RNA sequence: UUAUCUUCAGGACGGUAUUUGUGUCAAUAUGGAUAUUUCAAACAUAUUGCACUUAUACCGGCCUGAUGAUCU
Numbered sequence: 001u002u003a004u005c006u007u008c009a010g011g012a013c014g015g016u017a018u019u020u021g022u023g024u025c026a027a028u029a030u031g032g033a034u035a036u037u038u039c040a041a042a043c044a045u046a047u048u049g050c051a052c053u054u055a056u057a058c059c060g061g062c063c064u065g066a067u068g069a070u071c072u
Base pairs, nucleotide, nucleotide: 003070004069005068007066010063011062013060014059016057017056021052023050025049026048027047028046029045030044031043
This 72-nucleotide sequence from Drosophila ananassae belongs to the Rfam family "mir-310 microRNA precursor family".
It scores 59 bits against the family's covariance model.
The base pairs follow the family's consensus structure, which was predicted with RNAalifold.
Clan: mir-92 microRNA precursor clan.